[Rfam]
RNA sequence: UUAUAAGCAAAUUUCACCUUUUUAGAUUCAUUAAAUAAUUAAUGUAUCUGAUCUAUAUAAUCAACCAGAUACAUUAAUUAUUUAAUGAAUCUAGAAAGGUGAAAUUUGCUUAUAA
Numbered sequence: 001u002u003a004u005a006a007g008c009a010a011a012u013u014u015c016a017c018c019u020u021u022u023u024a025g026a027u028u029c030a031u032u033a034a035a036u037a038a039u040u041a042a043u044g045u046a047u048c049u050g051a052u053c054u055a056u057a058u059a060a061u062c063a064a065c066c067a068g069a070u071a072c073a074u075u076a077a078u079u080a081u082u083u084a085a086u087g088a089a090u091c092u093a094g095a096a097a098g099g100u101g102a103a104a105u106u107u108g109c110u111u112a113u114a115a
Base pairs, nucleotide, nucleotide: 002114003113004112005111006110007109009107010106011105012104013103015101016100017099018098019097020096021095022094023093024092025091027089028088029087030086031085032084033083034082035081036080037079038078039077040076041075042074043073044072049067050066052064
RNA: MIR2593 microRNA precursor family